[Rfam]
RNA: HIV gag stem loop 3 (GSL3)
Organism: Lentivirus humimdef1
RNA sequence: GGCCAGGGGGAAGCAAAAGAUAUAGACUAAAACAUAUAGUAUGGGCAAGCAGAGAACUAGAACGAUAUGCACUUAAUCCUGGCC
Number, nucleotide and partner (000 for none) at each position: 001g084002g083003c082004c081005a080006g079007g078008g077009g000010g000011a000012a000013g000014c000015a000016a000017a000018a000019g000020a000021u000022a000023u000024a000025g000026a000027c000028u000029a000030a000031a000032a000033c000034a000035u000036a000037u000038a000039g000040u000041a000042u000043g000044g000045g000046c000047a000048a000049g000050c000051a000052g000053a000054g000055a000056a000057c000058u000059a000060g000061a000062a000063c000064g000065a000066u000067a000068u000069g000070c000071a000072c000073u000074u000075a000076a000077u008078c007079c006080u005081g004082g003083c002084c001